[Rfam]
RNA sequence: UGUCUCCUCUAUUCUCUUAGGAAAAUAGAUUCAAGCCCGGUCCCGUAUCGGGCUUUUUUUU
Numbered sequence: 001u002g003u004c005u006c007c008u009c010u011a012u013u014c015u016c017u018u019a020g021g022a023a024a025a026u027a028g029a030u031u032c033a034a035g036c037c038c039g040g041u042c043c044c045g046u047a048u049c050g051g052g053c054u055u056u057u058u059u060u061u
Base pairs, nucleotide, nucleotide: 008029009028010027011026012025013023034054035053036052037051038050039049040048041047
RNA: Betaproteobacteria toxic small RNA
Organism: Massilia eurypsychrophila